[Rfam]
RNA sequence: GGGCUUGCACAGCGCCCCCCGGCUGCCUAUAUCUGAACUGUUCCGGCUUGCCGGGACUAUGGCGAUAAACGCACCCGUAAUAAUCGGAUCGGACCCGGGGGCGGUACCCGGCGACUCCACCAAAAAUCCCUGCAUUGGGGGCAGAUGGGGUCGAAACAGGAUCGACGAACGACUAAAGGGGCCAGCUUUUGCUCGGUGAGGUACUACCGUUAUCGGUCCAAACGUACAGUUGCCAAUGACAACCGUGCUCCGAUGGCUCUGGCUGCGUAAGCAGUUCGAACAUCGAAACUUAAGCCCUUGCGCUUAGCCGCGUAAGGCGGGGUUCGCAGGUACCUGGCAACAGAAACCUGCACU
Numbered sequence: 001g002g003g004c005u006u007g008c009a010c011a012g013c014g015c016c017c018c019c020c021g022g023c024u025g026c027c028u029a030u031a032u033c034u035g036a037a038c039u040g041u042u043c044c045g046g047c048u049u050g051c052c053g054g055g056a057c058u059a060u061g062g063c064g065a066u067a068a069a070c071g072c073a074c075c076c077g078u079a080a081u082a083a084u085c086g087g088a089u090c091g092g093a094c095c096c097g098g099g100g101g102c103g104g105u106a107c108c109c110g111g112c113g114a115c116u117c118c119a120c121c122a123a124a125a126a127u128c129c130c131u132g133c134a135u136u137g138g139g140g141g142c143a144g145a146u147g148g149g150g151u152c153g154a155a156a157c158a159g160g161a162u163c164g165a166c167g168a169a170c171g172a173c174u175a176a177a178g179g180g181g182c183c184a185g186c187u188u189u190u191g192c193u194c195g196g197u198g199a200g201g202u203a204c205u206a207c208c209g210u211u212a213u214c215g216g217u218c219c220a221a222a223c224g225u226a227c228a229g230u231u232g233c234c235a236a237u238g239a240c241a242a243c244c245g246u247g248c249u250c251c252g253a254u255g256g257c258u259c260u261g262g263c264u265g266c267g268u269a270a271g272c273a274g275u276u277c278g279a280a281c282a283u284c285g286a287a288a289c290u291u292a293a294g295c296c297c298u299u300g301c302g303c304u305u306a307g308c309c310g311c312g313u314a315a316g317g318c319g320g321g322g323u324u325c326g327c328a329g330g331u332a333c334c335u336g337g338c339a340a341c342a343g344a345a346a347c348c349u350g351c352a353c354u
Base pairs, nucleotide, nucleotide: 040057041056042055043054044053045052046051061193062192063191064190065189071186072185074181075180076179085171086170089168090167091166095111096110097109098108099107112153113152114151115150116149117148118147194209195208196207197206200219201218203217204216205215320335321334322333323332326351327350328349329348330347331346
Rfam assigns this 354-nucleotide RNA sequence from Gemmobacter fulvus to the family "Alphaproteobacteria transfer-messenger RNA". Lineage of the source: Bacteria > Pseudomonadati > Pseudomonadota > Rhodobacterales > Gemmobacter. About the family: Bacterial tmRNA, also known as 10Sa RNA or SsrA, is named for its dual tRNA and mRNA-like properties.